[Rfam]
RNA sequence: GCAUUCAGGUGGCCGCUGUGCUUAAGUGCAUAGAGGAAAGUCCAUGCUCGCACGGGCUGAGAUGCCCGUAGUGUUCGUGCCUAGCCAAUUCAUAAGCUAGGGUAGCCAGGUUUAUGGCUAACGGCAGGAGGAAUACCUACGUCCUUUGGAUAUGGUAGACACUCCUUGAAAGUGCCACAGUGACGGAGUCCGUUUGGAAACAGACGGAGUGGAACGAGGUAAACCCCUCGAGCGAGAAACCCAAAAUUAGGUAGGGGCAUUUUUCGGUUUGGAAUUGAACAAAACCGGAAGAACAGAAUGUAUUCUGUAGAUAGAUGGUCACCACCAGCGUACGAGGUUCAUCACCGCUUGCAGUACAACGGAACAGAACAUGGCUUAUCGAA
Numbered sequence: 001g002c003a004u005u006c007a008g009g010u011g012g013c014c015g016c017u018g019u020g021c022u023u024a025a026g027u028g029c030a031u032a033g034a035g036g037a038a039a040g041u042c043c044a045u046g047c048u049c050g051c052a053c054g055g056g057c058u059g060a061g062a063u064g065c066c067c068g069u070a071g072u073g074u075u076c077g078u079g080c081c082u083a084g085c086c087a088a089u090u091c092a093u094a095a096g097c098u099a100g101g102g103u104a105g106c107c108a109g110g111u112u113u114a115u116g117g118c119u120a121a122c123g124g125c126a127g128g129a130g131g132a133a134u135a136c137c138u139a140c141g142u143c144c145u146u147u148g149g150a151u152a153u154g155g156u157a158g159a160c161a162c163u164c165c166u167u168g169a170a171a172g173u174g175c176c177a178c179a180g181u182g183a184c185g186g187a188g189u190c191c192g193u194u195u196g197g198a199a200a201c202a203g204a205c206g207g208a209g210u211g212g213a214a215c216g217a218g219g220u221a222a223a224c225c226c227c228u229c230g231a232g233c234g235a236g237a238a239a240c241c242c243a244a245a246a247u248u249a250g251g252u253a254g255g256g257g258c259a260u261u262u263u264u265c266g267g268u269u270u271g272g273a274a275u276u277g278a279a280c281a282a283a284a285c286c287g288g289a290a291g292a293a294c295a296g297a298a299u300g301u302a303u304u305c306u307g308u309a310g311a312u313a314g315a316u317g318g319u320c321a322c323c324a325c326c327a328g329c330g331u332a333c334g335a336g337g338u339u340c341a342u343c344a345c346c347g348c349u350u351g352c353a354g355u356a357c358a359a360c361g362g363a364a365c366a367g368a369a370c371a372u373g374g375c376u377u378a379u380c381g382a383a
Stems, first nucleotide, its partner, number of pairs: 004383003007379001008323007016033006038377003042374005047236005052069006075231003079227001080101006102122001103120006123226002126166004134157004141151003172224002174220003189208008240256003260292007293308006325362002330357004

Rfam assigns this 383-nucleotide RNA sequence from Alkalicoccobacillus porphyridii to the family "Bacterial RNase P class B".
For this family Rfam cites "Ribonuclease P: unity and diversity in a tRNA processing ribozyme" (Frank and Pace, Annu Rev Biochem, 1998).
Rfam classes the family as a ribozyme.
Its Rfam clan is "RNaseP clan".